[Rfam]
RNA sequence: UGAAUUUGGAGACUUCAGCUUGCAUACUCGGAGUAUCUGAAGACUUCAGCUUGCAUACUUGGAGGAUUUGAAGGAACU
Numbered sequence: 001u002g003a004a005u006u007u008g009g010a011g012a013c014u015u016c017a018g019c020u021u022g023c024a025u026a027c028u029c030g031g032a033g034u035a036u037c038u039g040a041a042g043a044c045u046u047c048a049g050c051u052u053g054c055a056u057a058c059u060u061g062g063a064g065g066a067u068u069u070g071a072a073g074g075a076a077c078u
Base pairs, nucleotide, nucleotide: 001076005072006071007070008069009068010067013064014063015062016061017060021055022054023053024052028049030047031046032045033044
RNA: MIR8024 microRNA precursor family
Organism: Solanum lycopersicum